[Rfam]
RNA sequence: AGACUCUAGUGUAACUGGCGACGAGAGUGGGAUACCACGAUGGAGCACUAGAGAUACGGCCGGUCGCCUGGGCAGAAGAG
Numbered sequence: 001a002g003a004c005u006c007u008a009g010u011g012u013a014a015c016u017g018g019c020g021a022c023g024a025g026a027g028u029g030g031g032a033u034a035c036c037a038c039g040a041u042g043g044a045g046c047a048c049u050a051g052a053g054a055u056a057c058g059g060c061c062g063g064u065c066g067c068c069u070g071g072g073c074a075g076a077a078g079a080g
Base pairs, nucleotide, nucleotide: 004053005052006051007050008049009048010047011046012045015042017068018067019066020065021064027038028037029036030035057075059073060072061071
Dot-bracket structure: ...(((((((((..(.[[[[[.....((((....))))...)..)))))))))...(.(((..]]]]]..))).).....